RNA sequence: AAACUGGACUCGUAAGUCCUGGAACAGGCUGCUCGGAUGUAAGUCCGUGCUACUCCGUCUGGCCUUGGCCCGCCUUUUGGCGUGAACGGUGAGAAUCGGCCCCCAGGGUGAGCCAGUUU
Numbered sequence: 001a002a003a004c005u006g007g008a009c010u011c012g013u014a015a016g017u018c019c020u021g022g023a024a025c026a027g028g029c030u031g032c033u034c035g036g037a038u039g040u041a042a043g044u045c046c047g048u049g050c051u052a053c054u055c056c057g058u059c060u061g062g063c064c065u066u067g068g069c070c071c072g073c074c075u076u077u078u079g080g081c082g083u084g085a086a087c088g089g090u091g092a093g094a095a096u097c098g099g100c101c102c103c104c105a106g107g108g109u110g111a112g113c114c115a116g117u118u119u
Stems, first nucleotide, its partner, number of pairs: 001119007009112004018107005027101003034047005071082004
Dot-bracket structure: (((((((.((((.....(((((....(((....(((((....))))).......................((((....))))................))).))))).)))))))))))